[Rfam]
RNA sequence: UGGUAGAUGCACCCUGAUAUCAUCAAAAUCCCUAGCUGGCUGCCACCCACUAGGGUUUUUUUUA
Numbered sequence: 001u002g003g004u005a006g007a008u009g010c011a012c013c014c015u016g017a018u019a020u021c022a023u024c025a026a027a028a029u030c031c032c033u034a035g036c037u038g039g040c041u042g043c044c045a046c047c048c049a050c051u052a053g054g055g056u057u058u059u060u061u062u063u064a
Stems, first nucleotide, its partner, number of pairs: 002013003030055006038047002
Dot-bracket structure: .(((......)))................((((((..((......))..)))))).........
RNA: Nitrogen stress-induced RNA 1